[Rfam]
RNA: Small nucleolar RNA SNORA24
RNA sequence: CUCCAUGUCUCCAUGGGGGCUGCCGCCCGUGGCUGUCCCCCUUCCUAGGCAUGGCAGAGCAGCUCCUUGCUAAUUGGCAAAGCUCCUACCGGCGCGUUGGUAGCAGUCGUUGACUGUAGCGAGGAACACGG
Dot-bracket structure: ..(((((.......((((.(.(((......))).)..))))........))))).............((.(..(((((.(..((...((((......))))...))........)))..)))..).))...